Rfam assigns this 122-nucleotide RNA from Phaseolus vulgaris to the family "MIR394 microRNA precursor family".
The match comes from Rfam's covariance-model search (90 bits).
Its family is annotated with RISC complex and miRNA-mediated post-transcriptional gene silencing in the Gene Ontology.
RNA sequence: CUUACAGAGUUUCUUGGCAUUCUGUCCACCUCCACUUCCAUUAAUGGAUCUCUCUUUCUCCUACUCUUUUUCUAUACCAUCACUACGCGGAGGUGGACAUGCUGCCAAUAGAGCUCUGUUGG
Numbered sequence: 001c002u003u004a005c006a007g008a009g010u011u012u013c014u015u016g017g018c019a020u021u022c023u024g025u026c027c028a029c030c031u032c033c034a035c036u037u038c039c040a041u042u043a044a045u046g047g048a049u050c051u052c053u054c055u056u057u058c059u060c061c062u063a064c065u066c067u068u069u070u071u072c073u074a075u076a077c078c079a080u081c082a083c084u085a086c087g088c089g090g091a092g093g094u095g096g097a098c099a100u101g102c103u104g105c106c107a108a109u110a111g112a113g114c115u116c117u118g119u120u121g122g
Stems, first nucleotide, its partner, number of pairs: 011112001014108006023099011